[Rfam]
RNA sequence: UAACCUUGUUUGUGAAAGCAGGAUGAACGUACAGAAGUCAGCAGACGCCAUAGUACGCAAGUUGUUGCAACAGCUGCGGAAGGGC
Numbered sequence: 001u002a003a004c005c006u007u008g009u010u011u012g013u014g015a016a017a018g019c020a021g022g023a024u025g026a027a028c029g030u031a032c033a034g035a036a037g038u039c040a041g042c043a044g045a046c047g048c049c050a051u052a053g054u055a056c057g058c059a060a061g062u063u064g065u066u067g068c069a070a071c072a073g074c075u076g077c078g079g080a081a082g083g084g085c
Stems, first nucleotide, its partner, number of pairs: 001025002005022007037046003047085003056078003061074002
The family of this 85-nucleotide sequence from Paenibacillus wynnii is "Group II catalytic intron D1-D4-1". Gene Ontology term of the family: Group II intron splicing. The family has 237 seed sequences and 2,508 matches in Rfam 15.1. The literature on the family includes a 2001 paper in Trends Genet by Bonen and Vogel, "The ins and outs of group II introns". A search with the family's covariance model found it, with a score of 67 bits.